[Rfam]
RNA: L2-Alphaproteobacteria ribosomal protein leader
Organism: Epibacterium ulvae
RNA sequence: UGGGACCUUCGGGGCCCUUUACAUUGGUCACCUGAACCGGUUGCAGGCGCAGCAAGGCAGGGGGCUUUCACAUAGCGGUGCCUCGUUUCUUCCUUGGGGUAUCGCACGCUAAACGGAAGACAGAAA
Numbered sequence: 001u002g003g004g005a006c007c008u009u010c011g012g013g014g015c016c017c018u019u020u021a022c023a024u025u026g027g028u029c030a031c032c033u034g035a036a037c038c039g040g041u042u043g044c045a046g047g048c049g050c051a052g053c054a055a056g057g058c059a060g061g062g063g064g065c066u067u068u069c070a071c072a073u074a075g076c077g078g079u080g081c082c083u084c085g086u087u088u089c090u091u092c093c094u095u096g097g098g099g100u101a102u103c104g105c106a107c108g109c110u111a112a113a114c115g116g117a118a119g120a121c122a123g124a125a126a
Stems, first nucleotide, its partner, number of pairs: 002017003006014003027103001030100004